[Rfam]
RNA sequence: AAUCCGCACCGACCUACGUGUGGCAGGAGCGGGGGAACCAGGCAAGCCGCCGACCGGAGGGAUCCGGGACGGCUCGGGGUUAAGUCGCGUCCAGCGCGGCCGGGCAUCUCCAGCCCGAACCCGACAGCUCACCUCGCAGGCGCCGGAGAGGACAU
Dot-bracket structure: ..(((....................)))((((((....(....................................)(((.....((((.......))))..((((.......))))...))).........))))))..................
c-di-AMP riboswitch aptamer (ydaO/yuaA leader): a 155-nucleotide RNA from Streptomyces sp. ADI97-07. Lineage of the source: Bacteria > Bacillati > Actinomycetes > Kitasatosporales > Streptomyces. Its family is annotated with cyclic-di-AMP binding and regulation of gene expression in the Gene Ontology. It scores 51 bits against the family's covariance model. The pairing is the family consensus, mapped onto this sequence.